[Rfam]
RNA sequence: ACACGCUUCUGUUAGGUGAGGCUCCUAUAUGGAAAAUGCUGCUGCCCUGCACAUAUCGAGAGACAUGUGUAGCAAAAUGUUUAACAUCUUAUAAUAAGAUGGAAUGGGUCAACAGAAAUGGUCGAAUUAAGGUCAUUUUUAAUGUAGCUGAUGAAUAAUCUACGCCAUAUAGUGCUAAAGCUCAAUGAUGGAGAAUACUA
Numbered sequence: 001a002c003a004c005g006c007u008u009c010u011g012u013u014a015g016g017u018g019a020g021g022c023u024c025c026u027a028u029a030u031g032g033a034a035a036a037u038g039c040u041g042c043u044g045c046c047c048u049g050c051a052c053a054u055a056u057c058g059a060g061a062g063a064c065a066u067g068u069g070u071a072g073c074a075a076a077a078u079g080u081u082u083a084a085c086a087u088c089u090u091a092u093a094a095u096a097a098g099a100u101g102g103a104a105u106g107g108g109u110c111a112a113c114a115g116a117a118a119u120g121g122u123c124g125a126a127u128u129a130a131g132g133u134c135a136u137u138u139u140u141a142a143u144g145u146a147g148c149u150g151a152u153g154a155a156u157a158a159u160c161u162a163c164g165c166c167a168u169a170u171a172g173u174g175c176u177a178a179a180g181c182u183c184a185a186u187g188a189u190g191g192a193g194a195a196u197a198c199u200a
Stems, first nucleotide, its partner, number of pairs: 005196001007194002010191001011186002013130001015182003020176003025172008038148005044109004054101004115139004121133003150160003

About this RNA
A member of the RNA family "M-box riboswitch aptamer (ykoK leader)" from Carnobacterium maltaromaticum, 200 nucleotides long. The literature on the family includes a 2004 paper in Proc Natl Acad Sci U S A by Barrick et al., "New RNA motifs suggest an expanded scope for riboswitches in bacterial genetic control". Rfam describes the family as follows. M-box riboswitch, also know as ykoK leader is described as a metaloregulatory RNA that sense divalent metals and function as a genetic control element of genes related to divalent metal transport in bacteria. It was first reported upstream of the B.subtilis ykoK gene and genes with related functions in other bacteria. Pairs were carried over by alignment from the consensus structure. Gene Ontology terms of the family: response to magnesium ion and regulation of gene expression. The source organism's lineage runs through Bacteria, Bacillota, Lactobacillales, Carnobacteriaceae and Carnobacterium maltaromaticum.